Shown here is an 85-nucleotide RNA sequence from Rhizobacter sp., a member of the family "SucA RNA motif". The organism belongs to Rhizobacter, within Bacteria.

RNA sequence: UCGCUAGUCCGCCCACCGGAAAACCCGGGUCGCGGAAGGUUUUUUAACCCACUGUCGUGCCGGAAACCGGUGCAAGAGGUGAGCG
Numbered sequence: 001u002c003g004c005u006a007g008u009c010c011g012c013c014c015a016c017c018g019g020a021a022a023a024c025c026c027g028g029g030u031c032g033c034g035g036a037a038g039g040u041u042u043u044u045u046a047a048c049c050c051a052c053u054g055u056c057g058u059g060c061c062g063g064a065a066a067c068c069g070g071u072g073c074a075a076g077a078g079g080u081g082a083g084c085g
Base pairs, nucleotide, nucleotide: 002085003084004083008036009035010034011033012032017027018026019025038049039048040047041046050081051080052079053078057073058072059071060070061069062068063067

For this family Rfam cites "Identification of 22 candidate structured RNAs in bacteria using the CMfinder comparative genomics pipeline" (Weinberg et al., Nucleic Acids Res, 2007). Its family is annotated with regulation of translation in the Gene Ontology.